RNA sequence: AUAUGUAUGAUGAAGAAAAUCGUUCGGAUUCCCAAUGAUUUUUCAUAAGAUGAUUCCUAACCAGCUACUUCUGACAUAU
Numbered sequence: 001a002u003a004u005g006u007a008u009g010a011u012g013a014a015g016a017a018a019a020u021c022g023u024u025c026g027g028a029u030u031c032c033c034a035a036u037g038a039u040u041u042u043u044c045a046u047a048a049g050a051u052g053a054u055u056c057c058u059a060a061c062c063a064g065c066u067a068c069u070u071c072u073g074a075c076a077u078a079u
Stems, first nucleotide, its partner, number of pairs: 001079005
Rfam assigns this 79-nucleotide RNA from Zostera marina to the family "Small nucleolar RNA R12". The match comes from Rfam's covariance-model search (78 bits). Pairs were carried over by alignment from the consensus structure, which was predicted with PFOLD. Rfam 15.1 lists 992 matches to the family in 220 species. snoR12 is a C/D box small nucleolar RNA, which acts as a methylation guide for 25S ribosomal RNA in plants. snoR12 has been alternatively named snoZ44 in Arabidopsis and snoZ131 in rice. The source organism's lineage runs through Eukaryota, Streptophyta, Tracheophyta, Magnoliopsida and Zostera.